[Rfam]
RNA sequence: GAUAGGCGGCUGUCGCUAGCGUGAUUGGACACUGACGGACAGUCAACUAGCCUUGUCCGAGCGGAAUCCGCGCGGUGCCGGGGGCGUUCCGAGCCACGAGGGGGGAGGCUCGGAGCGCCCCGG
Numbered sequence: 001g002a003u004a005g006g007c008g009g010c011u012g013u014c015g016c017u018a019g020c021g022u023g024a025u026u027g028g029a030c031a032c033u034g035a036c037g038g039a040c041a042g043u044c045a046a047c048u049a050g051c052c053u054u055g056u057c058c059g060a061g062c063g064g065a066a067u068c069c070g071c072g073c074g075g076u077g078c079c080g081g082g083g084g085c086g087u088u089c090c091g092a093g094c095c096a097c098g099a100g101g102g103g104g105g106a107g108g109c110u111c112g113g114a115g116c117g118c119c120c121c122g123g
Base pairs, nucleotide, nucleotide: 001014002013003012004011005010015051016050017049018048021032022031023030033045034044035043036042058072059071062070063069064068073080074079083119084118085117086116087115088114089113090112091111092110093109094108095107097104
This 123-nucleotide RNA sequence from Streptomyces termitum belongs to the Rfam family "Streptomyces RNA 3920".
Rfam classes the family as a small RNA.
From the family's description: Identified by deep sequencing of transcriptome at the end of exponential growth phase. Sequencing size consistent with northern blot size. Streptomyces specific.
For this family Rfam cites "Deep sequencing-based identification of small non-coding RNAs in Streptomyces coelicolor" (Vockenhuber et al., RNA Biol, 2011).
The organism belongs to Streptomyces, within Bacteria.
The pairing is the family consensus, mapped onto this sequence.